[Rfam]
Background:
The record is a 100-nucleotide sequence from Rhodobacteraceae bacterium SB2, which matches "Methylobacterium-1 RNA" in Rfam. It is annotated as a small RNA. The organism belongs to Paracoccaceae, within Bacteria. It scores 58 bits against the family's covariance model.
RNA sequence: CAAGAUGGAAAUGGUGCAUAAAGAUUAUCCAUUGGAUGGAAGAACCGAAUUCCAGGUAACGAAGCUAUUAUCCAAUCAGUACUUUGUUACUCCCGUAGUU
Numbered sequence: 001c002a003a004g005a006u007g008g009a010a011a012u013g014g015u016g017c018a019u020a021a022a023g024a025u026u027a028u029c030c031a032u033u034g035g036a037u038g039g040a041a042g043a044a045c046c047g048a049a050u051u052c053c054a055g056g057u058a059a060c061g062a063a064g065c066u067a068u069u070a071u072c073c074a075a076u077c078a079g080u081a082c083u084u085u086g087u088u089a090c091u092c093c094c095g096u097a098g099u100u
Stems, first nucleotide, its partner, number of pairs: 004033006010026003038053004055091010066081004